[Rfam]
A member of the RNA family "mir-216 microRNA precursor family" from Gouania willdenowi, 75 nucleotides long. Its Rfam clan is "mir-216 clan". On this family, see Lim et al., Science 2003: "Vertebrate microRNA genes".
RNA sequence: GGACUGGGUAAUCUCUGCAGGCAACUGUGAUGGUGCCUUCAAUUCUCACAAUCACCUGGAGAGAUUCUGUAGUCC
Numbered sequence: 001g002g003a004c005u006g007g008g009u010a011a012u013c014u015c016u017g018c019a020g021g022c023a024a025c026u027g028u029g030a031u032g033g034u035g036c037c038u039u040c041a042a043u044u045c046u047c048a049c050a051a052u053c054a055c056c057u058g059g060a061g062a063g064a065u066u067c068u069g070u071a072g073u074c075c
Base pairs, nucleotide, nucleotide: 003073004072005071006070010066011065012064013063014062015061016060020057021056024052026050027049028048029047030046